Rfam assigns this 112-nucleotide sequence from Ornatilinea apprima to the family "SAM riboswitch aptamer (S box leader)".
[Rfam]
RNA sequence: ACAUCAUCCAGAGAGGUGGAGGGACCGGCCCGUAGAAACCUCGGCAACCGCUGUUUGCAGGUGCCAAUUCCGGCAGAGACUACCUCCCGGUAGGGUAUCUGAAAGAUGAAUG
Number, nucleotide and partner (000 for none) at each position: 001a000002c000003a000004u109005c108006a107007u106008c105009c000010a000011g000012a000013g042014a041015g040016g039017u038018g000019g000020a000021g031022g030023g029024a000025c073026c072027g071028g070029c023030c022031c021032g000033u000034a000035g000036a000037a000038a017039c016040c015041u014042c013043g065044g064045c063046a062047a000048c061049c060050g058051c057052u000053g000054u000055u000056u000057g051058c050059a000060g049061g048062u046063g045064c044065c043066a000067a000068u000069u104070c028071c027072g026073g025074c101075a100076g099077a098078g000079a096080c095081u094082a000083c000084c000085u000086c000087c000088c000089g000090g000091u000092a000093g000094g081095g080096u079097a000098u077099c076100u075101g074102a000103a000104a069105g008106a007107u006108g005109a004110a000111u000112g000
Its family is annotated with regulation of gene expression in the Gene Ontology.
The SAM riboswitch is found upstream of a number of genes which code for proteins involved in methionine or cysteine biosynthesis in Gram-positive bacteria. The SAM riboswitch acts at the level of transcription termination control. The predicted structure consists of a complex stem-loop region followed by a single stem loop terminator region. An alternative and mutually exclusive form involves bases in the 3' segment of helix 1 with those in the 5' region of helix 5 to form a structure termed the anti-terminator form.